[Rfam]
RNA: c-di-AMP riboswitch aptamer (ydaO/yuaA leader)
Organism: Streptomyces sp. DJ
RNA sequence: GUCGCGCAAGCGCCGUAGGCAGGAGCGGGGGAACCAGGUAAGCCGCCGGGGCCGGACACCACCGGUCCCGGCUAGGGGUCAAGCCGCCGAAGGCGGCCGGGCACUCACUGGCCCGAACCCGACAGCUCACCCCGCAGGCGCCGGUGAGAAACACU
Number, nucleotide and partner (000 for none) at each position: 001g000002u000003c000004g000005c000006g000007c000008a000009a000010g000011c140012g139013c138014c137015g000016u000017a000018g000019g000020c000021a000022g000023g000024a000025g135026c134027g133028g132029g131030g130031g000032a000033a000034c000035c075036a000037g000038g000039u000040a000041a000042g000043c000044c000045g000046c000047c000048g000049g000050g000051g000052c000053c000054g000055g000056a000057c000058a000059c000060c000061a000062c000063c000064g000065g000066u000067c000068c000069c000070g000071g000072c000073u000074a000075g035076g120077g119078g118079u000080c000081a000082a000083g000084c096085c095086g094087c093088c000089g000090a000091a000092g000093g087094c086095g085096g084097c000098c000099g114100g113101g112102c111103a000104c000105u000106c000107a000108c000109u000110g000111g102112c101113c100114c099115g000116a000117a000118c078119c077120c076121g000122a000123c000124a000125g000126c000127u000128c000129a000130c030131c029132c028133c027134g026135c025136a000137g014138g013139c012140g011141c000142c000143g000144g000145u000146g000147a000148g000149a000150a000151a000152c000153a000154c000155u000